[Rfam]
RNA sequence: AAGCGAAGGACCCAGCAGGGAAGCGAGUAUACUCAUGAAAUGAGGCUUCUCUAACCAUUUAUUUAACCUUCGUAGAUUGAGUCGUCCAAGAACUCUUUGAUGAUCUGUCUUUUUAAUUGGAUUGUCUUGUGUUCUUGUUGUAUAUUU
Dot-bracket structure: ..(((((((.(((....)))....(((....(((((...)))))....)))...............))))))).............(((((.......((.((((((..........)))))).))......)))))..........

The record is a 147-nucleotide sequence from Capsella rubella, which matches "Small nucleolar RNA snoR145" in Rfam. The family has 19 seed sequences and 286 matches in Rfam 15.1. Lineage of the source: Eukaryota > Viridiplantae > Pentapetalae > Brassicaceae > Capsella. A reference for the family is Chen and Wu (2009), "Mining small RNA sequencing data: a new approach to identify small nucleolar RNAs in Arabidopsis", Nucleic Acids Res.